[Rfam]
RNA sequence: AUACUUCCCCGGCAGAGGAGAUACCAUGAUCACAAAGGCGGUUUUCCCAGAGCGAGGCUUACCCAUUGCAUGUGGGAUGUGCUGAUCCCUGGGUUUCCCCAAAUGUGGGAAACUCCUCUGCAUAAUAUGUGGUAGUGGGAGACCACGGUUGCACUCUCCCC
Numbered sequence: 001a002u003a004c005u006u007c008c009c010c011g012g013c014a015g016a017g018g019a020g021a022u023a024c025c026a027u028g029a030u031c032a033c034a035a036a037g038g039c040g041g042u043u044u045u046c047c048c049a050g051a052g053c054g055a056g057g058c059u060u061a062c063c064c065a066u067u068g069c070a071u072g073u074g075g076g077a078u079g080u081g082c083u084g085a086u087c088c089c090u091g092g093g094u095u096u097c098c099c100c101a102a103a104u105g106u107g108g109g110a111a112a113c114u115c116c117u118c119u120g121c122a123u124a125a126u127a128u129g130u131g132g133u134a135g136u137g138g139g140a141g142a143c144c145a146c147g148g149u150u151g152c153a154c155u156c157u158c159c160c161c
Base pairs, nucleotide, nucleotide: 012121013120014119015118017047018046019045020044021043023042024041025040027038049090050089052087054086056083057082058081060079061078063076064075091116092115093114094112095110096109098108099107137160138159139158140157141156142155147152
RNA: U1 spliceosomal RNA
Organism: Myotis lucifugus